[Rfam]
RNA sequence: CGCACAUUUAUGAAGGCUGCAUAGAAAACCCCCGCGGUGUAUGAAGCCAGAUGUCCGGUGUG
Numbered sequence: 001c002g003c004a005c006a007u008u009u010a011u012g013a014a015g016g017c018u019g020c021a022u023a024g025a026a027a028a029c030c031c032c033c034g035c036g037g038u039g040u041a042u043g044a045a046g047c048c049a050g051a052u053g054u055c056c057g058g059u060g061u062g
Stems, first nucleotide, its partner, number of pairs: 001062005015048004020043004030037002

The family of this 62-nucleotide RNA sequence from Piaya cayana is "Selenocysteine insertion sequence 1". It is annotated as a cis-regulatory element. The incorporation of selenocysteine into a protein sequence is directed by an in-frame UGA codon (usually a stop codon) within the coding region of the mRNA. Selenoprotein mRNAs contain a conserved secondary structure in the 3' UTR that is required for the distinction of UGA stop from UGA selenocysteine. The selenocysteine insertion sequence (SECIS) is around 60 nt in length and adopts a hairpin structure which is sufficiently well-defined and conserved to act as a computational screen for selenoprotein genes. It scores 38 bits against the family's covariance model. A reference for the family is Walczak et al. (1996), "A novel RNA structural motif in the selenocysteine insertion element of eukaryotic selenoprotein mRNAs", RNA.